[Rfam]
RNA sequence: CUGAUACGACAGGGGAGCGCCACCGGCGCUGAGAGUGCGGCACGACCGCAGACCCUCGCACCUGAUCCGGUUCGCACCGGCGUAGGGAGUCGGGAAUCUCGGACG
Numbered sequence: 001c002u003g004a005u006a007c008g009a010c011a012g013g014g015g016a017g018c019g020c021c022a023c024c025g026g027c028g029c030u031g032a033g034a035g036u037g038c039g040g041c042a043c044g045a046c047c048g049c050a051g052a053c054c055c056u057c058g059c060a061c062c063u064g065a066u067c068c069g070g071u072u073c074g075c076a077c078c079g080g081c082g083u084a085g086g087g088a089g090u091c092g093g094g095a096a097u098c099u100c101g102g103a104c105g
Base pairs, nucleotide, nucleotide: 007092008091009090010089011056012055013054014053017029018028019027020026021025036050037049038048039047040046061086062085063084064083067080068079069078070077
The record is a 105-nucleotide RNA sequence from Austwickia chelonae, which matches "TPP riboswitch aptamer (THI element)" in Rfam. Lineage of the source: Bacteria > Bacillati > Actinomycetota > Austwickia > Austwickia chelonae. Rfam links the family to the GO term thiamine pyrophosphate binding.